[Rfam]
The family of this 140-nucleotide RNA sequence from Camelus ferus is "U4 spliceosomal RNA". The organism belongs to Camelus, within Eukaryota. The base pairs follow the family's consensus structure, which is taken from published work. By type it is a spliceosomal small nuclear RNA. The match comes from Rfam's covariance-model search (87 bits). For this family Rfam cites "Mechanism of 5' splice site transfer for human spliceosome activation" (Charenton et al., Science, 2019).

RNA sequence: AGUUUUGCACAGUGGCAGUAUCAUAGCCAAGGACGUUUAUCUGAGGUGUGAUUAUUGCUGACUGAAAAUUUUCCCAAUCCCCCGCCAUGAUGACUUGAAAUACAGUCGGCAUUGGGAAUUUUUCACAGUCUCUACGGAGA
Numbered sequence: 001a002g003u004u005u006u007g008c009a010c011a012g013u014g015g016c017a018g019u020a021u022c023a024u025a026g027c028c029a030a031g032g033a034c035g036u037u038u039a040u041c042u043g044a045g046g047u048g049u050g051a052u053u054a055u056u057g058c059u060g061a062c063u064g065a066a067a068a069u070u071u072u073c074c075c076a077a078u079c080c081c082c083c084g085c086c087a088u089g090a091u092g093a094c095u096u097g098a099a100a101u102a103c104a105g106u107c108g109g110c111a112u113u114g115g116g117a118a119u120u121u122u123u124c125a126c127a128g129u130c131u132c133u134a135c136g137g138a139g140a
Stems, first nucleotide, its partner, number of pairs: 020052005026047003035041001085115002087112003091108005129140004